[Rfam]
Rfam assigns this 58-nucleotide RNA sequence from Kribbella turkmenica to the family "msiK RNA". NCBI's taxonomy places the organism under Bacteria, Bacillati, Propionibacteriales, Kribbellaceae, Kribbella.

RNA sequence: UCCUGGGGGCCUUUGCUACGGACCGUCCGGCACGUUCCUGCCGGCGAAGGAAGGAAGC
Numbered sequence: 001u002c003c004u005g006g007g008g009g010c011c012u013u014u015g016c017u018a019c020g021g022a023c024c025g026u027c028c029g030g031c032a033c034g035u036u037c038c039u040g041c042c043g044g045c046g047a048a049g050g051a052a053g054g055a056a057g058c
Stems, first nucleotide, its partner, number of pairs: 010050006027044006